[Rfam]
RNA sequence: AUGCCCAGUGAUUAUAAAAAGACGCGUUAUUCUGAGGAACACAACCUGCUGCCAGUCUUUUGUCCCUUAUCUUCUUUCUUAAUCUUCAUCUUUGAUAUUCUUCUCCUCUCUGUCUCCUCUUUUCUAACACGGUAGCUGGUCCGCUGACUGCGAUUAUGAGAUAUGAGGGCAU
Numbered sequence: 001a002u003g004c005c006c007a008g009u010g011a012u013u014a015u016a017a018a019a020a021g022a023c024g025c026g027u028u029a030u031u032c033u034g035a036g037g038a039a040c041a042c043a044a045c046c047u048g049c050u051g052c053c054a055g056u057c058u059u060u061u062g063u064c065c066c067u068u069a070u071c072u073u074c075u076u077u078c079u080u081a082a083u084c085u086u087c088a089u090c091u092u093u094g095a096u097a098u099u100c101u102u103c104u105c106c107u108c109u110c111u112g113u114c115u116c117c118u119c120u121u122u123u124c125u126a127a128c129a130c131g132g133u134a135g136c137u138g139g140u141c142c143g144c145u146g147a148c149u150g151c152g153a154u155u156a157u158g159a160g161a162u163a164u165g166a167g168g169g170c171a172u
Stems, first nucleotide, its partner, number of pairs: 001172006035067003039063003
Small nucleolar RNA SNORD97: a 172-nucleotide RNA from Channa argus. Its family is annotated with RNA processing and nucleolus in the Gene Ontology. The organism belongs to Channa, within Eukaryota. By type it is a C/D-box small nucleolar RNA. It scores 70 bits against the family's covariance model.